[Rfam]
RNA sequence: UGUGAGACCGUGCCGGUCCGUCAGACCCCCGACCCGACGGACCGGCGCGGUCUCGCU
Number, nucleotide and partner (000 for none) at each position: 001u000002g056003u055004g054005a053006g000007a051008c050009c049010g048011u047012g046013c045014c044015g043016g042017u041018c040019c039020g038021u037022c036023a000024g000025a000026c000027c000028c000029c000030c000031g000032a000033c000034c000035c000036g022037a021038c020039g019040g018041a017042c016043c015044g014045g013046c012047g011048c010049g009050g008051u007052c000053u005054c004055g003056c002057u000

F6 TB sRNA: a 57-nucleotide RNA sequence from Rhodococcus sp. Leaf258. The source organism's lineage runs through Bacteria, Actinomycetota, Actinomycetes, Mycobacteriales and Rhodococcus. A reference for the family is Arnvig and Young (2009), "Identification of small RNAs in Mycobacterium tuberculosis", Mol Microbiol. It is annotated as a small RNA.